[Rfam]
RNA sequence: CAUGCAACUUAACCUGUUCUUCUUCGCAUUGUUUUUUACCUUCCCCUGAACGGGAGGCCUUUCGUCGUGAAAGUAACAAUGCGAAGACGAAUAAUAAAGCCUCCCACCAGGGAGGCUUUUUUUUG
Numbered sequence: 001c002a003u004g005c006a007a008c009u010u011a012a013c014c015u016g017u018u019c020u021u022c023u024u025c026g027c028a029u030u031g032u033u034u035u036u037u038a039c040c041u042u043c044c045c046c047u048g049a050a051c052g053g054g055a056g057g058c059c060u061u062u063c064g065u066c067g068u069g070a071a072a073g074u075a076a077c078a079a080u081g082c083g084a085a086g087a088c089g090a091a092u093a094a095u096a097a098a099g100c101c102u103c104c105c106a107c108c109a110g111g112g113a114g115g116c117u118u119u120u121u122u123u124u125g
Base pairs, nucleotide, nucleotide: 016092017091018090019089021087022086023085024084025083026082027081028080029079030078031077032076033075036072037071039069042055043054044053045052056066057065058064096119097118098117099116100115101114102113103112104111105110
Phenylalanine leader peptide: a 125-nucleotide RNA sequence from Erwinia sp. OLSSP12. The literature on the family includes a 1978 paper in Proc Natl Acad Sci U S A by Zurawski et al., "Nucleotide sequence of the leader region of the phenylalanine operon of Escherichia coli". NCBI's taxonomy places the organism under Bacteria, Pseudomonadati, Pseudomonadota, Enterobacterales, Erwinia. A search with the family's covariance model found it, with a score of 116 bits.